The family of this 284-nucleotide RNA from Pangasianodon hypophthalmus is "Metazoan signal recognition particle RNA". By type it is a non-coding RNA gene. The signal recognition particle (SRP) is a universally conserved ribonucleoprotein. Gene Ontology terms of the family: signal recognition particle, endoplasmic reticulum targeting and SRP-dependent cotranslational protein targeting to membrane, signal sequence recognition. It scores 148 bits against the family's covariance model. The source organism's lineage runs through Eukaryota, Opisthokonta, Metazoa, Ostariophysi and Pangasianodon. The literature on the family includes a 2002 paper in Nucleic Acids Res by Regalia et al., "Prediction of signal recognition particle RNA genes".

RNA sequence: GGGAAUUAUUUAUAAUCACACUAUCUGCUGUGACCCAGAUGAGGAUGGGUUCCCUUCUGAGUCUGGUUCUGGGCUACCACGGGCCAUGUCGAUCGGGUGUCCGCACUAAGAUUGGUGUCAAUAUGGUGUUCCUAAGGGAGCUCUGGACUACCAGGUCACCUAAGGAGGGAUGAACCGACCCAGGUUGGGAAUGAAGCAGGUCAAAGCCCCUGUACCAAUCAGUAGUGGGAUAGUGCCUGUGAAUUGAUGUGGUAGUGCAGCCUGGGUGAUACAGUGAGUCUCUU
Numbered sequence: 001g002g003g004a005a006u007u008a009u010u011u012a013u014a015a016u017c018a019c020a021c022u023a024u025c026u027g028c029u030g031u032g033a034c035c036c037a038g039a040u041g042a043g044g045a046u047g048g049g050u051u052c053c054c055u056u057c058u059g060a061g062u063c064u065g066g067u068u069c070u071g072g073g074c075u076a077c078c079a080c081g082g083g084c085c086a087u088g089u090c091g092a093u094c095g096g097g098u099g100u101c102c103g104c105a106c107u108a109a110g111a112u113u114g115g116u117g118u119c120a121a122u123a124u125g126g127u128g129u130u131c132c133u134a135a136g137g138g139a140g141c142u143c144u145g146g147a148c149u150a151c152c153a154g155g156u157c158a159c160c161u162a163a164g165g166a167g168g169g170a171u172g173a174a175c176c177g178a179c180c181c182a183g184g185u186u187g188g189g190a191a192u193g194a195a196g197c198a199g200g201u202c203a204a205a206g207c208c209c210c211u212g213u214a215c216c217a218a219u220c221a222g223u224a225g226u227g228g229g230a231u232a233g234u235g236c237c238u239g240u241g242a243a244u245u246g247a248u249g250u251g252g253u254a255g256u257g258c259a260g261c262c263u264g265g266g267u268g269a270u271a272c273a274g275u276g277a278g279u280c281u282c283u284u
Stems, first nucleotide, its partner, number of pairs: 001035002003011003016033005042284004047279001050278003054274002058269001060267001062265002065262002069260003073256009084246001086244002089241001094239007101229002104227005110220009121156002124153005130147003135142002159165002166211004171206001177202004185194003